Actinobacteria sRNA Ms_IGR-7: a 119-nucleotide RNA sequence from Streptomyces sp. So13.3. The base pairs follow the family's consensus structure.
[Rfam]
RNA sequence: CGGAGAUGCCCGGUCCUCCUUCGCUGAUUUGUGCCUUGAGAACACCAAUCAUCGCAGGUAGCAGGGCAUUUCUCACUGACCACUCGUUGUGAUCAACCGCGUAUCCCCGGUGGAUUCAG
Numbered sequence: 001c002g003g004a005g006a007u008g009c010c011c012g013g014u015c016c017u018c019c020u021u022c023g024c025u026g027a028u029u030u031g032u033g034c035c036u037u038g039a040g041a042a043c044a045c046c047a048a049u050c051a052u053c054g055c056a057g058g059u060a061g062c063a064g065g066g067c068a069u070u071u072c073u074c075a076c077u078g079a080c081c082a083c084u085c086g087u088u089g090u091g092a093u094c095a096a097c098c099g100c101g102u103a104u105c106c107c108c109g110g111u112g113g114a115u116u117c118a119g
Base pairs, nucleotide, nucleotide: 002073003072004071005070006069007068008067009066010065011064013062015061019057020056022054023053025051026050027049028048032044033043101117103115104114105113106112
Source information:
By type it is a small RNA. The source organism's lineage runs through Bacteria, Bacillati, Actinomycetota, Streptomycetaceae and Streptomyces.